[Rfam]
This 77-nucleotide RNA sequence from Alligator mississippiensis belongs to the Rfam family "Mammalian CPEB3 ribozyme".
RNA sequence: AGUCCCAAAUCUGAGGCCACAGCAGAAAUGCUUGCAGCGUGGCCUGUCAGAUUCCAACCAAAUCUGUGAAUUCUGCU
Numbered sequence: 001a002g003u004c005c006c007a008a009a010u011c012u013g014a015g016g017c018c019a020c021a022g023c024a025g026a027a028a029u030g031c032u033u034g035c036a037g038c039g040u041g042g043c044c045u046g047u048c049a050g051a052u053u054c055c056a057a058c059c060a061a062a063u064c065u066g067u068g069a070a071u072u073c074u075g076c077u
Base pairs, nucleotide, nucleotide: 015044016043017042018041021077022076023075024074025073026072027071028040029039030038048066049065050064051063052062053061
Source information: The mammalian CPEB3 ribozyme is a self cleaving RNA located in the second intron of the CPEB3 gene which belongs to a family of genes regulating messenger RNA polyadenylation. Pairs were carried over by alignment from the consensus structure, which is taken from published work. Taxonomically the source falls in Alligator (Eukaryota, Metazoa, Eumetazoa, Archosauria).